[Rfam]
RNA sequence: UGGAGAAGGGGAGCACGUGCAACCACCGCGAAUGGUAUGCUAGGUUUGCACGUGCCCUGCUUCUCCAAC
Numbered sequence: 001u002g003g004a005g006a007a008g009g010g011g012a013g014c015a016c017g018u019g020c021a022a023c024c025a026c027c028g029c030g031a032a033u034g035g036u037a038u039g040c041u042a043g044g045u046u047u048g049c050a051c052g053u054g055c056c057c058u059g060c061u062u063c064u065c066c067a068a069c
Stems, first nucleotide, its partner, number of pairs: 001067008010058002013055010024044001028036002
The family of this 69-nucleotide RNA from Chenopodium quinoa is "MIR164 microRNA precursor family".
The match comes from Rfam's covariance-model search (67 bits).
Rfam links the family to the GO terms RISC complex and miRNA-mediated post-transcriptional gene silencing.
The literature on the family includes a 2002 paper in Genes Dev by Reinhart et al., "MicroRNAs in plants".